RNA sequence: UUUGGGAUAUGAUGCAACUAUAUAAUCAUCAAAGGCGACAGCAAUGCUGAAUUGGCUAUUUGCACGUCAGUCUGAUCCCAAC
Numbered sequence: 001u002u003u004g005g006g007a008u009a010u011g012a013u014g015c016a017a018c019u020a021u022a023u024a025a026u027c028a029u030c031a032a033a034g035g036c037g038a039c040a041g042c043a044a045u046g047c048u049g050a051a052u053u054g055g056c057u058a059u060u061u062g063c064a065c066g067u068c069a070g071u072c073u074g075a076u077c078c079c080a081a082c
Base pairs, nucleotide, nucleotide: 002081003080004079005078006077007076
Dot-bracket structure: .((((((....................................................................)))))).
The family of this 82-nucleotide RNA sequence from Ziziphus jujuba is "Small nucleolar RNA Z122". A reference for the family is Chen et al. (2003), "The high diversity of snoRNAs in plants: identification and comparative study of 120 snoRNA genes from Oryza sativa", Nucleic Acids Res. Rfam 15.1 lists 822 matches to the family in 247 species.